[Rfam]
RNA sequence: AGCUCAGUGAUGCAGCCGUUUUCAUUGGCAAUAUACGCUAUGCUGACUGUUUGAUGACAAAUAAGAAUAUGAGAGCU
Numbered sequence: 001a002g003c004u005c006a007g008u009g010a011u012g013c014a015g016c017c018g019u020u021u022u023c024a025u026u027g028g029c030a031a032u033a034u035a036c037g038c039u040a041u042g043c044u045g046a047c048u049g050u051u052u053g054a055u056g057a058c059a060a061a062u063a064a065g066a067a068u069a070u071g072a073g074a075g076c077u
Base pairs, nucleotide, nucleotide: 001077002076003075004074005073